[Rfam]
RNA sequence: UGGAGGCAUGAGAAGGUGGGGUAGUUGUUGCCAUACUGCUUCCUACUGGUUAUAUCCUCCUACAGUAUCAAUGCGCCGGCUGCGCGGAUUCCUACGCACGUUAGUGAACCCUGCAGUCUCCGCACUAACACUUU
Numbered sequence: 001u002g003g004a005g006g007c008a009u010g011a012g013a014a015g016g017u018g019g020g021g022u023a024g025u026u027g028u029u030g031c032c033a034u035a036c037u038g039c040u041u042c043c044u045a046c047u048g049g050u051u052a053u054a055u056c057c058u059c060c061u062a063c064a065g066u067a068u069c070a071a072u073g074c075g076c077c078g079g080c081u082g083c084g085c086g087g088a089u090u091c092c093u094a095c096g097c098a099c100g101u102u103a104g105u106g107a108a109c110c111c112u113g114c115a116g117u118c119u120c121c122g123c124a125c126u127a128a129c130a131c132u133u134u
Base pairs, nucleotide, nucleotide: 002060003059004058005057006056015047016046017045018044019041020040021039022038023037024036025035078126079125083122084121086119087118088117089116090115
Shown here is a 134-nucleotide RNA sequence from Xenopus laevis, a member of the family "Small nucleolar RNA SNORA47". NCBI's taxonomy places the organism under Eukaryota, Gnathostomata, Teleostomi, Anura, Xenopus. Gene Ontology terms of the family: nucleolus and RNA processing.